[Rfam]
RNA sequence: UGGGCCCGGGAGUGGUGGCUGCCGUCUUUUGUCUAACCCUAAUUGAGACUGGCGUAGGUGCUGCGCUUUUGCUCCCCGCGCGCUGUUUUUCUCGCUGACUUUCAGCGGGCGGAAAAGCCUCGGCCUACCGCCAUCAACCAUCCAGACUGAAGCAAACAAAAAAUGUCAGCCGCUGGCUCGCUCACCUCUCCCGGGAACCUGCGUGGCUCGCCCGCCCAGGCCCCGCGCCCCGCCUGAGGCCGCGGUCGGCCCGGGGCUUCUCCGGAGGCGCCCACUGCCGCCGCGAAGAGUUGGGCUCUGUCAGCCGCGGGUCGCUUGGGGGGCCGAGGCGAGGCUCUUACCGCAGGGAAAGGAACGGAGCCGGUC
Numbered sequence: 001u002g003g004g005c006c007c008g009g010g011a012g013u014g015g016u017g018g019c020u021g022c023c024g025u026c027u028u029u030u031g032u033c034u035a036a037c038c039c040u041a042a043u044u045g046a047g048a049c050u051g052g053c054g055u056a057g058g059u060g061c062u063g064c065g066c067u068u069u070u071g072c073u074c075c076c077c078g079c080g081c082g083c084u085g086u087u088u089u090u091c092u093c094g095c096u097g098a099c100u101u102u103c104a105g106c107g108g109g110c111g112g113a114a115a116a117g118c119c120u121c122g123g124c125c126u127a128c129c130g131c132c133a134u135c136a137a138c139c140a141u142c143c144a145g146a147c148u149g150a151a152g153c154a155a156a157c158a159a160a161a162a163a164u165g166u167c168a169g170c171c172g173c174u175g176g177c178u179c180g181c182u183c184a185c186c187u188c189u190c191c192c193g194g195g196a197a198c199c200u201g202c203g204u205g206g207c208u209c210g211c212c213c214g215c216c217c218a219g220g221c222c223c224c225g226c227g228c229c230c231c232g233c234c235u236g237a238g239g240c241c242g243c244g245g246u247c248g249g250c251c252c253g254g255g256g257c258u259u260c261u262c263c264g265g266a267g268g269c270g271c272c273c274a275c276u277g278c279c280g281c282c283g284c285g286a287a288g289a290g291u292u293g294g295g296c297u298c299u300g301u302c303a304g305c306c307g308c309g310g311g312u313c314g315c316u317u318g319g320g321g322g323g324c325c326g327a328g329g330c331g332a333g334g335c336u337c338u339u340a341c342c343g344c345a346g347g348g349a350a351a352g353g354a355a356c357g358g359a360g361c362c363g364g365u366c
Base pairs, nucleotide, nucleotide: 005195006194007193008192009191010190011189012188014186015185016184017183018182021177022176023175024174065118066117067116068115069114077111078110079109081107082106083105084104085103094170095169096168097167098166099165100163101162102161198347199346200345201344202343203342210335211334212333213331214330215329216328221321222320223319224318225317227315229311230310231309232308233307241285242284243283244282245281247280248279249278250277253273254272255271287299288298289297290296
RNA: Vertebrate telomerase RNA